[Rfam]
RNA sequence: UAUUCCUUUAAAACAGUCCCGUGAGGCUGUCAAGGAGAAGAACCUGAUAAGAGUGGGCAUUUUGUGUGCGCAAUCAUUUUCUGUAAUCUCCUUGUUAACAAGGGGAUUUUUUUUG
Numbered sequence: 001u002a003u004u005c006c007u008u009u010a011a012a013a014c015a016g017u018c019c020c021g022u023g024a025g026g027c028u029g030u031c032a033a034g035g036a037g038a039a040g041a042a043c044c045u046g047a048u049a050a051g052a053g054u055g056g057g058c059a060u061u062u063u064g065u066g067u068g069c070g071c072a073a074u075c076a077u078u079u080u081c082u083g084u085a086a087u088c089u090c091c092u093u094g095u096u097a098a099c100a101a102g103g104g105g106a107u108u109u110u111u112u113u114u115g
Stems, first nucleotide, its partner, number of pairs: 003037006013030006046078003050074001053071003057067003083110001085108010
RNA: PyrR binding site